[Rfam]
RNA sequence: UCGUUAUCAAGAAAGGUGGAGGGAUUAGACCCUAUGAAACCUUAGCAACCCUUUACCCUGAUGUCCAUCAGGGUCCAAGAAGGUGCUACAUUCUAUCCGCCUACGGCGGACAGAUAACCA
Numbered sequence: 001u002c003g004u005u006a007u008c009a010a011g012a013a014a015g016g017u018g019g020a021g022g023g024a025u026u027a028g029a030c031c032c033u034a035u036g037a038a039a040c041c042u043u044a045g046c047a048a049c050c051c052u053u054u055a056c057c058c059u060g061a062u063g064u065c066c067a068u069c070a071g072g073g074u075c076c077a078a079g080a081a082g083g084u085g086c087u088a089c090a091u092u093c094u095a096u097c098c099g100c101c102u103a104c105g106g107c108g109g110a111c112a113g114a115u116a117a118c119c120a
Stems, first nucleotide, its partner, number of pairs: 001120001003118006013043005021032003028094001044087004049083002051079003092112001097109005